Rfam assigns this 118-nucleotide sequence from Cervus elaphus to the family "Small nucleolar RNA SNORA28". The family's consensus secondary structure was predicted with RNAfold. NCBI's taxonomy places the organism under Eukaryota, Craniata, Teleostomi, Mammalia, Cervus elaphus. Rfam's curators write: ACA28 is a member of the H/ACA class of snoRNA that guide the sites of modification of uridines to pseudouridines. A reference for the family is Huttenhofer et al. (2001), "RNomics: an experimental approach that identifies 201 candidates for novel, small, non-messenger RNAs in mouse", EMBO J.
RNA sequence: AAGCAGCACUCUGCAGCAGAUAAAACUGACACAGUUUGAGCUUGCUAUAGAAGGAAAGUCUAGCCUAUUCCGGUAUUCUCUUCUCUGUGAGACAAGGCGUCAUGUAGACUUAAACAGG
Numbered sequence: 001a002a003g004c005a006g007c008a009c010u011c012u013g014c015a016g017c018a019g020a021u022a023a024a025a026c027u028g029a030c031a032c033a034g035u036u037u038g039a040g041c042u043u044g045c046u047a048u049a050g051a052a053g054g055a056a057a058g059u060c061u062a063g064c065c066u067a068u069u070c071c072g073g074u075a076u077u078c079u080c081u082u083c084u085c086u087g088u089g090a091g092a093c094a095a096g097g098c099g100u101c102a103u104g105u106a107g108a109c110u111u112a113a114a115c116a117g118g
Stems, first nucleotide, its partner, number of pairs: 009040003012033002017028003056111007066104003071099002074096001079092004